[Rfam]
RNA sequence: CGAGUUUAAUUAUAGUCAUUGUAGAAGCGUGCUCGUCGCGAUCCCUGCCAGCCCUUUUCAGGGCUGCAAUUCUACA
Dot-bracket structure: ..............[[[..((((((((((.......)))]].].....(((((((....)))))))...)))))))
Numbered sequence: 001c002g003a004g005u006u007u008a009a010u011u012a013u014a015g016u017c018a019u020u021g022u023a024g025a026a027g028c029g030u031g032c033u034c035g036u037c038g039c040g041a042u043c044c045c046u047g048c049c050a051g052c053c054c055u056u057u058u059c060a061g062g063g064c065u066g067c068a069a070u071u072c073u074a075c076a
Stems, first nucleotide, its partner, number of pairs: 015043001016041002020076007027039003049066007

The record is a 76-nucleotide RNA from Parnassius apollo, which matches "Mammalian CPEB3 ribozyme" in Rfam. Its family is annotated with RNA nuclease activity in the Gene Ontology. The source organism's lineage runs through Eukaryota, Ecdysozoa, Pancrustacea, Dicondylia and Parnassius. Pairs were carried over by alignment from the consensus structure, which is taken from published work. A search with the family's covariance model found it, with a score of 41 bits. The mammalian CPEB3 ribozyme is a self cleaving RNA located in the second intron of the CPEB3 gene which belongs to a family of genes regulating messenger RNA polyadenylation.